[Rfam]
RNA sequence: GAUCGAGUGGGCGAGGAAUACAAUACCCGAAAGGGGAAUAACUCCAGCUUACUGUUAGGCUUGCGAACCGCUCGAUCGCCAGGUA
Numbered sequence: 001g002a003u004c005g006a007g008u009g010g011g012c013g014a015g016g017a018a019u020a021c022a023a024u025a026c027c028c029g030a031a032a033g034g035g036g037a038a039u040a041a042c043u044c045c046a047g048c049u050u051a052c053u054g055u056u057a058g059g060c061u062u063g064c065g066a067a068c069c070g071c072u073c074g075a076u077c078g079c080c081a082g083g084u085a
Stems, first nucleotide, its partner, number of pairs: 001077009013044003017039001026035003046061005

The family of this 85-nucleotide RNA sequence from Caviibacterium pharyngocola is "sRNA-Xcc1". A search with the family's covariance model found it, with a score of 59 bits. It is annotated as a small RNA. The family's consensus secondary structure was predicted with RNAalifold. On this family, see Chen et al., RNA Biol 2011: "sRNA-Xcc1, an integron-encoded transposon- and plasmid-transferred trans-acting sRNA, is under the positive control of the key virulence regulators HrpG and HrpX of Xanthomonas campestris pathovar campestris". The family has 74 seed sequences and 421 matches in Rfam 15.1.